[Rfam]
RNA sequence: GGAUUUCGUUGAGGCAGGGUUGGGGUUUCUAUGCGGCAUGUGCCUUGAUGUUACUCGCCGAAAUGCAAUGCCCUUGGAAAUCCCAAAAAUGUCCAACGCAC
Numbered sequence: 001g002g003a004u005u006u007c008g009u010u011g012a013g014g015c016a017g018g019g020u021u022g023g024g025g026u027u028u029c030u031a032u033g034c035g036g037c038a039u040g041u042g043c044c045u046u047g048a049u050g051u052u053a054c055u056c057g058c059c060g061a062a063a064u065g066c067a068a069u070g071c072c073c074u075u076g077g078a079a080a081u082c083c084c085a086a087a088a089a090u091g092u093c094c095a096a097c098g099c100a101c
Stems, first nucleotide, its partner, number of pairs: 008097004014092003021085009031075001033073001035072005041067003
RNA: mir-2788 microRNA precursor family
Organism: Neodiprion lecontei